[Rfam]
RNA: FMN riboswitch aptamer (RFN element)
RNA sequence: ACUUAUUCUCAGGGCGGGGUGCAAGUCCCCACCGGCGGUAUCCCAGAUGAUUCUGGGGAGCCCGCGAGCGCUCCUUUUGUUUAAAAAGGAGGUCAGCAGAUCUGGUUUAAAUCCAGAGCCGACGGUAUAGUCCGGAUGAAAGAGGAUAAGG
Numbered sequence: 001a002c003u004u005a006u007u008c009u010c011a012g013g014g015c016g017g018g019g020u021g022c023a024a025g026u027c028c029c030c031a032c033c034g035g036c037g038g039u040a041u042c043c044c045a046g047a048u049g050a051u052u053c054u055g056g057g058g059a060g061c062c063c064g065c066g067a068g069c070g071c072u073c074c075u076u077u078u079g080u081u082u083a084a085a086a087a088g089g090a091g092g093u094c095a096g097c098a099g100a101u102c103u104g105g106u107u108u109a110a111a112u113c114c115a116g117a118g119c120c121g122a123c124g125g126u127a128u129a130g131u132c133c134g135g136a137u138g139a140a141a142g143a144g145g146a147u148a149a150g151g
Stems, first nucleotide, its partner, number of pairs: 003149008017029003031131002033121002035065004060119002068097002101117005123134003